The family of this 179-nucleotide RNA from Puniceibacterium sediminis is "Ruegeria cis52 sRNA". The organism belongs to Puniceibacterium, within Bacteria. Its family is annotated with regulation of gene expression in the Gene Ontology. The family's consensus secondary structure was predicted with RNAfold. The family's RNA type in Rfam is small RNA. The family has 2 seed sequences and 277 matches in Rfam 15.1.
[Rfam]
RNA sequence: UGCGCAGGGCGUGCUUCAUCACGAUAUUGGGAAAGGACACACCCUUGAGCCGGGCAGUGCGGAUGUAUUGCGCGGUCAUCACCUCGGCCAUGCUGGCGCGGGUCAUGCGGGCGAUAUAGCCCAUGCCGUAGAGCGCGAUGGUGAGGACCGGCAGGAAGAAGUUGGUGAAAUUGGCGUCG
Numbered sequence: 001u002g003c004g005c006a007g008g009g010c011g012u013g014c015u016u017c018a019u020c021a022c023g024a025u026a027u028u029g030g031g032a033a034a035g036g037a038c039a040c041a042c043c044c045u046u047g048a049g050c051c052g053g054g055c056a057g058u059g060c061g062g063a064u065g066u067a068u069u070g071c072g073c074g075g076u077c078a079u080c081a082c083c084u085c086g087g088c089c090a091u092g093c094u095g096g097c098g099c100g101g102g103u104c105a106u107g108c109g110g111g112c113g114a115u116a117u118a119g120c121c122c123a124u125g126c127c128g129u130a131g132a133g134c135g136c137g138a139u140g141g142u143g144a145g146g147a148c149c150g151g152c153a154g155g156a157a158g159a160a161g162u163u164g165g166u167g168a169a170a171u172u173g174g175c176g177u178c179g
Stems, first nucleotide, its partner, number of pairs: 005140002009136004014131002016128001020125002028123004038113001040111001042109001046105003050101003054097001055075001057073006082096002146178002149174001151172001156163002